M23 RNA: a 55-nucleotide sequence.

RNA sequence: CGGUGGCCGCAGACCGGUUCCUCUGCGGCAGGCGGCCCAGCGGCCGCAGGAAGGG
Number, nucleotide and partner (000 for none) at each position: 001c000002g000003g000004u000005g000006g029007c028008c027009g026010c025011a024012g000013a000014c000015c000016g000017g000018u000019u000020c000021c000022u000023c000024u011025g010026c009027g008028g007029c006030a000031g000032g047033c046034g045035g044036c043037c000038c000039a000040g000041c000042g000043g036044c035045c034046g033047c032048a000049g000050g000051a000052a000053g000054g000055g000